Overview
This 491-nucleotide part of an RNA from Colletotrichum abscissum belongs to the Rfam family "Eukaryotic large subunit ribosomal RNA". Its family is annotated with ribosome and structural constituent of ribosome in the Gene Ontology. The organism belongs to Colletotrichum acutatum species complex, within Eukaryota.

[Rfam]
RNA sequence: UAGAACAAUAUAAAUAAGGGAAGUUAGCAAAACAGAUCCGUAACUUCGGGAUAAGGAUUAGCUCUAAGGGUUAGGUACGUUAGGCUUUAGGUAGACGGCUUAGGAACAGGUCGCUACUAGCUAGGUAACCGGCCAGAGGCUUCCAAUACUUAGGUUCUAACGCCCUUAACAAACUUCGGCCGUCCGGCGUACAGUUAACAACCAACUUAAAACUAAUACGGACAAGAGGAAUCUAACUAUCUAAUUAAAACAUAGCAUUACGAUAGCCAGAAAGUAGUAUUAACGCAAUAUAAUUUCUACCCAGUACUCUAAAUAUCAAAGUAAAGGAAUUCAACCAAGCGCGGGUAAACGGCAGGAGUAACUAUAACUCUCUUAAAGUAGCCAAAUACCUCAUUAUCUAAUUAGUAACGCGCAUAAAUAGAUCAACGAGAUUCCCACUAUCCCUAUCUACUAUCUAGCAAAACCACAGCUAAGGGAACGGGCUUAGCAAA
Numbered sequence: 001u002a003g004a005a006c007a008a009u010a011u012a013a014a015u016a017a018g019g020g021a022a023g024u025u026a027g028c029a030a031a032a033c034a035g036a037u038c039c040g041u042a043a044c045u046u047c048g049g050g051a052u053a054a055g056g057a058u059u060a061g062c063u064c065u066a067a068g069g070g071u072u073a074g075g076u077a078c079g080u081u082a083g084g085c086u087u088u089a090g091g092u093a094g095a096c097g098g099c100u101u102a103g104g105a106a107c108a109g110g111u112c113g114c115u116a117c118u119a120g121c122u123a124g125g126u127a128a129c130c131g132g133c134c135a136g137a138g139g140c141u142u143c144c145a146a147u148a149c150u151u152a153g154g155u156u157c158u159a160a161c162g163c164c165c166u167u168a169a170c171a172a173a174c175u176u177c178g179g180c181c182g183u184c185c186g187g188c189g190u191a192c193a194g195u196u197a198a199c200a201a202c203c204a205a206c207u208u209a210a211a212a213c214u215a216a217u218a219c220g221g222a223c224a225a226g227a228g229g230a231a232u233c234u235a236a237c238u239a240u241c242u243a244a245u246u247a248a249a250a251c252a253u254a255g256c257a258u259u260a261c262g263a264u265a266g267c268c269a270g271a272a273a274g275u276a277g278u279a280u281u282a283a284c285g286c287a288a289u290a291u292a293a294u295u296u297c298u299a300c301c302c303a304g305u306a307c308u309c310u311a312a313a314u315a316u317c318a319a320a321g322u323a324a325a326g327g328a329a330u331u332c333a334a335c336c337a338a339g340c341g342c343g344g345g346u347a348a349a350c351g352g353c354a355g356g357a358g359u360a361a362c363u364a365u366a367a368c369u370c371u372c373u374u375a376a377a378g379u380a381g382c383c384a385a386a387u388a389c390c391u392c393a394u395u396a397u398c399u400a401a402u403u404a405g406u407a408a409c410g411c412g413c414a415u416a417a418a419u420a421g422a423u424c425a426a427c428g429a430g431a432u433u434c435c436c437a438c439u440a441u442c443c444c445u446a447u448c449u450a451c452u453a454u455c456u457a458g459c460a461a462a463a464c465c466a467c468a469g470c471u472a473a474g475g476g477a478a479c480g481g482g483c484u485u486a487g488c489a490a491a
Base pairs, nucleotide, nucleotide: 001457002456003455004454011450012449014447015446016445018443019442020441035059036058037057038056039055044049060214061213063211065209066208067207068206069203070202071201072200075192076191077190078189079188080187081186083184084163085162088159089158090157091156098155099154100153101152102151103150104149106147109144110143113140114139115138117136118135120133121132122131124129228435229434230433231432232431233430234428238252240250255291257289258288259287261285262284266278267277269275295422296421300352301351304350305349306346307345308344309343314341316339322333324331325330355371356370357369358368359367373377394408395407396406397405470487471486472485473484474483